[Rfam]
Background: A member of the RNA family "RNase MRP" from Dioscorea zingiberensis, 224 nucleotides long. It scores 54 bits against the family's covariance model. RNase MRP is an enzymatically active ribonucleoprotein with two distinct roles in eukaryotes. In mitochondria it plays a direct role in the initiation of mitochondrial DNA replication. In the nucleus it is involved in precursor rRNA processing, where it cleaves the internal transcribed spacer 1 between 18S and 5.8S rRNAs. Despite distinct functions, RNase MRP has been shown to be evolutionarily related to RNase P. Like eukaryotic RNase P, RNase MRP is not catalytically active without associated protein subunits.
RNA sequence: AACCCUUGGGGCGAAGUGGAUGGGUUCAUGAAGCUCAGGAAAGUCCCCGGGCCUAUCUUCAUAGAGACGUGACCCUUGAUAGAGGGAUCCUCCGCGCUCUGGUGAGAGGCUGAGACCAGUGUGGUGCCGUUGAGUGCCGGAGCCGGAGGUUUGUGGCCAUCUGAUCACAGUUAUCCACUUGAUCUGAUAUUUGAUAACAGAACGGGGAUUAUGAUCUCAGGGGU
Numbered sequence: 001a002a003c004c005c006u007u008g009g010g011g012c013g014a015a016g017u018g019g020a021u022g023g024g025u026u027c028a029u030g031a032a033g034c035u036c037a038g039g040a041a042a043g044u045c046c047c048c049g050g051g052c053c054u055a056u057c058u059u060c061a062u063a064g065a066g067a068c069g070u071g072a073c074c075c076u077u078g079a080u081a082g083a084g085g086g087a088u089c090c091u092c093c094g095c096g097c098u099c100u101g102g103u104g105a106g107a108g109g110c111u112g113a114g115a116c117c118a119g120u121g122u123g124g125u126g127c128c129g130u131u132g133a134g135u136g137c138c139g140g141a142g143c144c145g146g147a148g149g150u151u152u153g154u155g156g157c158c159a160u161c162u163g164a165u166c167a168c169a170g171u172u173a174u175c176c177a178c179u180u181g182a183u184c185u186g187a188u189a190u191u192u193g194a195u196a197a198c199a200g201a202a203c204g205g206g207g208a209u210u211a212u213g214a215u216c217u218c219a220g221g222g223g224u
Stems, first nucleotide, its partner, number of pairs: 002224010014180006022036005041210002045207004060071003073086005089149006096143004108138003117123002182195003186191001
Source information
By type it is a ribozyme.